Annotation
The family of this 102-nucleotide RNA sequence from Geomicrobium sp. JCM 19039 is "TPP riboswitch aptamer (THI element)". It scores 70 bits against the family's covariance model.

[Rfam]
RNA sequence: AAAAGCUACUAGGGGUGCCCACGUACGGGCUGAGAUGAGGAAACUCAAACUCUUGAACCUGAACUGGUUGAUACCAGCGGAGGAAAGUAGAAUGUGUGACCA
Numbered sequence: 001a002a003a004a005g006c007u008a009c010u011a012g013g014g015g016u017g018c019c020c021a022c023g024u025a026c027g028g029g030c031u032g033a034g035a036u037g038a039g040g041a042a043a044c045u046c047a048a049a050c051u052c053u054u055g056a057a058c059c060u061g062a063a064c065u066g067g068u069u070g071a072u073a074c075c076a077g078c079g080g081a082g083g084a085a086a087g088u089a090g091a092a093u094g095u096g097u098g099a100c101c102a
Base pairs, nucleotide, nucleotide: 006090007089008088009087010086011053012052013051014050016047017030018029019028020027037046038045039044058083059082060081064077065076066075067074